Rfam assigns this 113-nucleotide RNA sequence from Promicromonospora citrea to the family "SAM (S-adenosyl methionine) riboswitch aptamer". It scores 85 bits against the family's covariance model. The family's consensus secondary structure is taken from published work. From the family's description: SAM-IV is a mRNA element that regulates gene expression via direct sensing of S-adenosylmethionine (SAM or AdoMet). Taxonomically the source falls in Promicromonospora (Bacteria, Bacillati, Actinomycetota, Actinomycetes).

[Rfam]
RNA sequence: GGUCAUGAGCUCCGGCGCCAAGCCCCGGCUGGCCGGACGGCAACCCCCCGCGCGGGUGGGUGCCCCGGGUGAGGACCAGGCUCACCGCCGCCCGGCGGUGGACAACACGCGUC
Dot-bracket structure: ((((....(.((((((....((......)).)))))))(((..(((.((....))..))).))).........))))..(.((((((((....)))))))).)..........